A member of the RNA family "Small nucleolar RNA SNORD56" from Nyctereutes procyonoides, 71 nucleotides long. It scores 76 bits against the family's covariance model.

RNA sequence: CUACAGUGAUGGCAGUACUUUUCAUCAACACCAAUUCACCUAAAAAGUGUUGAUACUUUAGGUCUGAGUUA
Numbered sequence: 001c002u003a004c005a006g007u008g009a010u011g012g013c014a015g016u017a018c019u020u021u022u023c024a025u026c027a028a029c030a031c032c033a034a035u036u037c038a039c040c041u042a043a044a045a046a047g048u049g050u051u052g053a054u055a056c057u058u059u060a061g062g063u064c065u066g067a068g069u070u071a
Base pairs, nucleotide, nucleotide: 003069004068008026009025010024011023
Dot-bracket structure: ..((...((((...........)))).........................................))..